[Rfam]
RNA sequence: GAGCGUCGUGUUGACACUCAAAAAGUUUCAGAUUUUGGAACAUUUCGGAUUUUGGAUUUUUGGAUCAGGGAUGCUC
Numbered sequence: 001g002a003g004c005g006u007c008g009u010g011u012u013g014a015c016a017c018u019c020a021a022a023a024a025g026u027u028u029c030a031g032a033u034u035u036u037g038g039a040a041c042a043u044u045u046c047g048g049a050u051u052u053u054g055g056a057u058u059u060u061u062g063g064a065u066c067a068g069g070g071a072u073g074c075u076c
Stems, first nucleotide, its partner, number of pairs: 001076007011068004018063007027056006034049006
Dot-bracket structure: (((((((...((((...(((((((..((((((.((((((....)))))).))))))))))))).)))).)))))))
The record is a 76-nucleotide sequence from Pan troglodytes, which matches "mir-1290 microRNA precursor family" in Rfam. Rfam's curators put it in the seed alignment. NCBI's taxonomy places the organism under Eukaryota, Opisthokonta, Gnathostomata, Tetrapoda, Pan. The base pairs follow the family's consensus structure, which was predicted with RNAalifold.